Rfam assigns this 140-nucleotide sequence from Microbulbifer rhizosphaerae to the family "Molybdenum/Tungsten riboswitch aptamer (Moco RNA motif)". The source organism's lineage runs through Bacteria, Pseudomonadota, Gammaproteobacteria, Cellvibrionales and Microbulbifer.
RNA sequence: AAAGAGUUUAAACACCGAGCCCCCAUGCCUAAGCGCCCAGCGUAUGGUGUGGGGGCCGUGGCCGACACUGCCGGCCACCAGGGGCGCCCGGGAAACCGGCCGGCCUCCCGCAACUGGAAAGGCGUUUAAUGUUAACCGAU
Numbered sequence: 001a002a003a004g005a006g007u008u009u010a011a012a013c014a015c016c017g018a019g020c021c022c023c024c025a026u027g028c029c030u031a032a033g034c035g036c037c038c039a040g041c042g043u044a045u046g047g048u049g050u051g052g053g054g055g056c057c058g059u060g061g062c063c064g065a066c067a068c069u070g071c072c073g074g075c076c077a078c079c080a081g082g083g084g085c086g087c088c089c090g091g092g093a094a095a096c097c098g099g100c101c102g103g104c105c106u107c108c109c110g111c112a113a114c115u116g117g118a119a120a121g122g123c124g125u126u127u128a129a130u131g132u133u134a135a136c137c138g139a140u
Stems, first nucleotide, its partner, number of pairs: 004133001011126003015122002019056011033043004058078007081106003085102002088099004107117002